[Rfam]
RNA sequence: GGGCGUAUGGUCUAGAGGUAUGAUUCCUGCUUUGGGUGCAGGAGGUCCCCGGUUCAAUCCCGGGUGCGCCCC
Numbered sequence: 001g002g003g004c005g006u007a008u009g010g011u012c013u014a015g016a017g018g019u020a021u022g023a024u025u026c027c028u029g030c031u032u033u034g035g036g037u038g039c040a041g042g043a044g045g046u047c048c049c050c051g052g053u054u055c056a057a058u059c060c061c062g063g064g065u066g067c068g069c070c071c072c
Stems, first nucleotide, its partner, number of pairs: 001071007010024003026042005048064005

This 72-nucleotide sequence from Lentinula aciculospora belongs to the Rfam family "tRNA". The source organism's lineage runs through Eukaryota, Basidiomycota, Agaricomycetes, Omphalotaceae and Lentinula. The family's RNA type in Rfam is transfer RNA. The base pairs follow the family's consensus structure, which is taken from published work.